bantam microRNA precursor family: an 85-nucleotide RNA from Culex quinquefasciatus. Gene Ontology terms of the family: miRNA-mediated post-transcriptional gene silencing and RISC complex. Its Rfam clan is "mir-81 clan". NCBI's taxonomy places the organism under Eukaryota, Protostomia, Panarthropoda, Endopterygota, Culex pipiens complex. The family has 28 seed sequences and 182 matches in Rfam 15.1.
RNA sequence: AAGCAAUCACAGAACCGGUUUUCAUUUUCGAUCUGACUUAUUUGAUUUAACAGAGUGAGAUCAUUUUGAAAGCUGAUUUUGUACG
Number, nucleotide and partner (000 for none) at each position: 001a000002a000003g000004c000005a000006a000007u000008c000009a082010c081011a080012g079013a078014a077015c000016c075017g074018g073019u072020u071021u070022u069023c068024a067025u000026u000027u000028u063029c000030g062031a061032u060033c059034u058035g000036a000037c000038u000039u000040a000041u000042u000043u000044g000045a000046u000047u000048u000049a000050a000051c000052a000053g000054a000055g000056u000057g000058a034059g033060a032061u031062c030063a028064u000065u000066u000067u024068g023069a022070a021071a020072g019073c018074u017075g016076a000077u014078u013079u012080u011081g010082u009083a000084c000085g000